[Rfam]
RNA sequence: CGGCGCUUGAGGCUUUCUGCCUCAUGACGUGAAGGUGGUUUGUUACCGUGUUGUGUGGCAGAAAGAAGAUAGCCCCGUAGUAAGUUAAUUUUCAUUAACCACCACGAGGCAUCCCUAUGUCUAGUCCACAUCAGGAUAGCCUCUUACCGCGCUUUGCGCAAGGAGAAGAAGGCCAUG
Numbered sequence: 001c002g003g004c005g006c007u008u009g010a011g012g013c014u015u016u017c018u019g020c021c022u023c024a025u026g027a028c029g030u031g032a033a034g035g036u037g038g039u040u041u042g043u044u045a046c047c048g049u050g051u052u053g054u055g056u057g058g059c060a061g062a063a064a065g066a067a068g069a070u071a072g073c074c075c076c077g078u079a080g081u082a083a084g085u086u087a088a089u090u091u092u093c094a095u096u097a098a099c100c101a102c103c104a105c106g107a108g109g110c111a112u113c114c115c116u117a118u119g120u121c122u123a124g125u126c127c128a129c130a131u132c133a134g135g136a137u138a139g140c141c142u143c144u145u146a147c148c149g150c151g152c153u154u155u156g157c158g159c160a161a162g163g164a165g166a167a168g169a170a171g172g173c174c175a176u177g
Stems, first nucleotide, its partner, number of pairs: 002075002005073003013065009023055001026052006077105002084099006106143005111137004117131003147172002